RNA sequence: AUGACGACAGCAGGAGAGACCUCCCCCAGAGGGAGGCGCCGACGAAGUAAAUCUUUCAGGCGAAAGGACUGCUGUCCGACG
Number, nucleotide and partner (000 for none) at each position: 001a000002u000003g000004a000005c000006g076007a075008c074009a073010g072011c071012a070013g069014g000015a000016g000017a000018g000019a000020c036021c035022u034023c033024c000025c000026c000027c000028a000029g000030a000031g000032g000033g023034a022035g021036g020037c000038g061039c060040c059041g057042a056043c000044g000045a055046a054047g053048u000049a000050a000051a000052u000053c047054u046055u045056u042057c041058a000059g040060g039061c038062g000063a000064a000065a000066g000067g000068a000069c013070u012071g011072c010073u009074g008075u007076c006077c000078g000079a000080c000081g000
Rfam assigns this 81-nucleotide RNA from Nitratidesulfovibrio vulgaris to the family "Glycine riboswitch aptamer". The match comes from Rfam's covariance-model search (64 bits). Lineage of the source: Bacteria > Pseudomonadati > Desulfovibrionales > Desulfovibrionaceae > Nitratidesulfovibrio vulgaris.